[Rfam]
The family of this 144-nucleotide sequence from Pseudomonas fluorescens is "Group II catalytic intron D1-D4-4". The literature on the family includes a 2001 paper in EMBO J by Chu et al., "Control of branch-site choice by a group II intron". Gene Ontology term of the family: Group II intron splicing. Rfam 15.1 lists 840 matches to the family in 506 species. Group II introns are found in rRNA, tRNA and mRNA of organelles in fungi, plants and protists, and also in mRNA in bacteria. The base pairs follow the family's consensus structure.
RNA sequence: CAGUGGGUGCGAAUCCACCCGGCUACUUGUCGCUCCGCGAACGGAAGCACUUUCGGAGGCAGUUCAGGAGGCAACGAAUGGGCUGAAGUAUCUGAAGAAAAGGCUUCUUUAGGAAGUCAGUGGACUGUGCAGGCCGUAGCGCGC
Numbered sequence: 001c002a003g004u005g006g007g008u009g010c011g012a013a014u015c016c017a018c019c020c021g022g023c024u025a026c027u028u029g030u031c032g033c034u035c036c037g038c039g040a041a042c043g044g045a046a047g048c049a050c051u052u053u054c055g056g057a058g059g060c061a062g063u064u065c066a067g068g069a070g071g072c073a074a075c076g077a078a079u080g081g082g083c084u085g086a087a088g089u090a091u092c093u094g095a096a097g098a099a100a101a102g103g104c105u106u107c108u109u110u111a112g113g114a115a116g117u118c119a120g121u122g123g124a125c126u127g128u129g130c131a132g133g134c135c136g137u138a139g140c141g142c143g144c
Stems, first nucleotide, its partner, number of pairs: 019044003022038002052094001055091001060085006070075001102118006123135001